[Rfam]
RNA: Small nucleolar RNA Z221/R21b
Organism: Helianthus annuus
RNA sequence: GGGCAGUGAUGAGAAAUUAGGAAAGUCAUGCACCACUCUGAUACUCAUUGUGAUUGAUAAACUUUCUCAUAACCCAUAUUUUUGUAUCUGAGCCC
Numbered sequence: 001g002g003g004c005a006g007u008g009a010u011g012a013g014a015a016a017u018u019a020g021g022a023a024a025g026u027c028a029u030g031c032a033c034c035a036c037u038c039u040g041a042u043a044c045u046c047a048u049u050g051u052g053a054u055u056g057a058u059a060a061a062c063u064u065u066c067u068c069a070u071a072a073c074c075c076a077u078a079u080u081u082u083u084g085u086a087u088c089u090g091a092g093c094c095c
Stems, first nucleotide, its partner, number of pairs: 001095004